The family of this 61-nucleotide RNA sequence from Caldanaerobius fijiensis is "Fluoride riboswitch aptamer (crcB RNA motif)". It scores 47 bits against the family's covariance model. The base pairs follow the family's consensus structure, which is taken from published work.

RNA sequence: CUUUAAUAAGGCGAUGGAGCUCGCCUUAAAUGCCUGAGAUGCUGAUGGCUCCUGCUUUUAA
Numbered sequence: 001c002u003u004u005a006a007u008a009a010g011g012c013g014a015u016g017g018a019g020c021u022c023g024c025c026u027u028a029a030a031u032g033c034c035u036g037a038g039a040u041g042c043u044g045a046u047g048g049c050u051c052c053u054g055c056u057u058u059u060a061a
Base pairs, nucleotide, nucleotide: 010025011024012023013022016052017051018050019049020048021047032042033041
Taxonomically the source falls in Caldanaerobius fijiensis (Bacteria, Bacillati, Thermoanaerobacterales, Caldanaerobius).